Notes:
A member of the RNA family "Glycine riboswitch aptamer" from Pseudoduganella ginsengisoli, 87 nucleotides long. About the family: This family represents the bacterial glycine riboswitch. The family is grouped with related families in Rfam's "Glycine riboswitch clan". The family has 44 seed sequences and 9,425 matches in Rfam 15.1. The match comes from Rfam's covariance-model search (61 bits). Gene Ontology term of the family: glycine biosynthetic process.
RNA sequence: CAGUCUUGAUCGGGAGAGCGCAGCGACCCGCUGCCGCCGAAGGGGCACUACCCAAAAACUCUCAGGCAAAAGGACCGGUCAGGGGCC
Numbered sequence: 001c002a003g004u005c006u007u008g009a010u011c012g013g014g015a016g017a018g019c020g021c022a023g024c025g026a027c028c029c030g031c032u033g034c035c036g037c038c039g040a041a042g043g044g045g046c047a048c049u050a051c052c053c054a055a056a057a058a059c060u061c062u063c064a065g066g067c068a069a070a071a072g073g074a075c076c077g078g079u080c081a082g083g084g085g086c087c
Stems, first nucleotide, its partner, number of pairs: 006082008020034004036067003039063002043061003049054001